[Rfam]
RNA: Group II catalytic intron D1-D4-3
RNA sequence: GUCACCGUGAGGUGAGGUCUGGAGGAAGCCUGAGUGCAAAACUGCGAGCCGAGGAACAGGAACUGCAUAAAAGGCCGAACACCCUGGGGUGAGUCAGCCAAUGAUGACAAAACCCUGUGGCUCAAGGGACACGGUAGAUGCAGCGGUUGCGCAGUGAAAGUCCAUGCU
Dot-bracket structure: .(((((....)))))............(.(.....((...(((((((((((...........((((((.....(((.....((((.((((..((((........))))...)))).........))))....)))..))))))))))).))))))....))....).)